Description: The family of this 134-nucleotide RNA sequence from Otolemur garnettii is "Small nucleolar RNA SNORA64/SNORA10 family". Rfam's curators write: This family belongs to the H/ACA class of small nucleolar RNAs (snoRNAs) which act as guides in the the modification of uridines to pseudouridines. This family includes the human snoRNAs U64 and ACA10 and mouse MBI-29. A reference for the family is Narayanan et al. (1999), "Nucleolar localization signals of box H/ACA small nucleolar RNAs", EMBO J. Clan: SNORA64 clan. The source organism's lineage runs through Eukaryota, Eumetazoa, Bilateria, Dipnotetrapodomorpha and Otolemur.
[Rfam]
RNA sequence: AUAUUCUACCUACUGCACGGUUACACUUGUCCUCACUUGUGUGACUUUCGUAAUGUGGAAAGAAAGAAAAGUUCUCCUCAGGAUAUCAGGUUGGCCUUACAGUGGCCUCUCUUUCCUUGAGGGCUCUAACAGGG
Numbered sequence: 001a002u003a004u005u006c007u008a009c010c011u012a013c014u015g016c017a018c019g020g021u022u023a024c025a026c027u028u029g030u031c032c033u034c035a036c037u038u039g040u041g042u043g044a045c046u047u048u049c050g051u052a053a054u055g056u057g058g059a060a061a062g063a064a065a066g067a068a069a070a071g072u073u074c075u076c077c078u079c080a081g082g083a084u085a086u087c088a089g090g091u092u093g094g095c096c097u098u099a100c101a102g103u104g105g106c107c108u109c110u111c112u113u114u115c116c117u118u119g120a121g122g123g124c125u126c127u128a129a130c131a132g133g134g
Stems, first nucleotide, its partner, number of pairs: 002066001004064004011058001014055002019046008075123004080118003088112003093107004